[Rfam]
RNA sequence: UGACGGGGGCCCGCACAAGCGGUGGAGCAUGUGGUUUAAUUCGAUGAUACGCGAGGAACCUUACCAAGGCUUAAAUGUAGUUUGACCGAUUUGGAAACAGAUCUUUCGCAAGACAAAUUACAAGGUGCUGCAUGGUUGUCGUCAGCUCGUGCCGUGAGGUGUCAGGUUAAGUCCUAUAACGAGCGCAACCCCUGUUGUUAGUUGCCAUCGAGUGAAGUCGGGAACUCUAACAAGACUGCCAGUGUAAACUGUGAGGAAGGUGGGGAUGACGUCAAAUCAUCACGGCCCUUACGCCUUGGGCUACACACGUGCUACAAUGGACGGUACAGAGAGCAGCCACUACGUGAGUAGGAGCGAAUCUACAAAACCGUUCUCAGUUCGGAUCGGAGUCUGCAACUCGACUCCGUGAAGCUGGAAUCGCUAGUAAUCGGAUAUCAGCCAUGAUCCGGUGAAUACGUUCCCGGGCCUUGUACACACCGCCCGUCAAGCCAUGGAAGCUGGGGGUGCCUGAAGUCGGUGACCGCAAGGAGCUGCCUAGGGUAAAACUGGUAACUAGGGCUAAGUCGUAACAAGGUAGCCGUACCGGAAGGUGCGGCUGGA
Numbered sequence: 001u002g003a004c005g006g007g008g009g010c011c012c013g014c015a016c017a018a019g020c021g022g023u024g025g026a027g028c029a030u031g032u033g034g035u036u037u038a039a040u041u042c043g044a045u046g047a048u049a050c051g052c053g054a055g056g057a058a059c060c061u062u063a064c065c066a067a068g069g070c071u072u073a074a075a076u077g078u079a080g081u082u083u084g085a086c087c088g089a090u091u092u093g094g095a096a097a098c099a100g101a102u103c104u105u106u107c108g109c110a111a112g113a114c115a116a117a118u119u120a121c122a123a124g125g126u127g128c129u130g131c132a133u134g135g136u137u138g139u140c141g142u143c144a145g146c147u148c149g150u151g152c153c154g155u156g157a158g159g160u161g162u163c164a165g166g167u168u169a170a171g172u173c174c175u176a177u178a179a180c181g182a183g184c185g186c187a188a189c190c191c192c193u194g195u196u197g198u199u200a201g202u203u204g205c206c207a208u209c210g211a212g213u214g215a216a217g218u219c220g221g222g223a224a225c226u227c228u229a230a231c232a233a234g235a236c237u238g239c240c241a242g243u244g245u246a247a248a249c250u251g252u253g254a255g256g257a258a259g260g261u262g263g264g265g266a267u268g269a270c271g272u273c274a275a276a277u278c279a280u281c282a283c284g285g286c287c288c289u290u291a292c293g294c295c296u297u298g299g300g301c302u303a304c305a306c307a308c309g310u311g312c313u314a315c316a317a318u319g320g321a322c323g324g325u326a327c328a329g330a331g332a333g334c335a336g337c338c339a340c341u342a343c344g345u346g347a348g349u350a351g352g353a354g355c356g357a358a359u360c361u362a363c364a365a366a367a368c369c370g371u372u373c374u375c376a377g378u379u380c381g382g383a384u385c386g387g388a389g390u391c392u393g394c395a396a397c398u399c400g401a402c403u404c405c406g407u408g409a410a411g412c413u414g415g416a417a418u419c420g421c422u423a424g425u426a427a428u429c430g431g432a433u434a435u436c437a438g439c440c441a442u443g444a445u446c447c448g449g450u451g452a453a454u455a456c457g458u459u460c461c462c463g464g465g466c467c468u469u470g471u472a473c474a475c476a477c478c479g480c481c482c483g484u485c486a487a488g489c490c491a492u493g494g495a496a497g498c499u500g501g502g503g504g505u506g507c508c509u510g511a512a513g514u515c516g517g518u519g520a521c522c523g524c525a526a527g528g529a530g531c532u533g534c535c536u537a538g539g540g541u542a543a544a545a546c547u548g549g550u551a552a553c554u555a556g557g558g559c560u561a562a563g564u565c566g567u568a569a570c571a572a573g574g575u576a577g578c579c580g581u582a583c584c585g586g587a588a589g590g591u592g593c594g595g596c597u598g599g600a
Stems, first nucleotide, its partner, number of pairs: 001474002003471003007468007015458002019421005024315001026313008034304002040055004064299007076122003080118005088103006106113002124288002127286004133282002135277003138273001140271002145184006151160003164175003190265004195233007205222002209220003236256002239253001240251004319373007332361002336355002341350003380411001385406007427450007477573001479570001482566002487560004492555003497550005505542004513535001515533004521528002575598010
Bacterial small subunit ribosomal RNA: a 600-nucleotide part of an RNA from Flavobacterium branchiophilum. Rfam links the family to the GO terms structural constituent of ribosome and ribosome. For this family Rfam cites "Crystal structure of the ribosome at 5.5 A resolution" (Yusupov et al., Science, 2001). Rfam's curators put it in the seed alignment. Taxonomically the source falls in Flavobacterium (Bacteria, Flavobacteriia, Flavobacteriales, Flavobacteriaceae).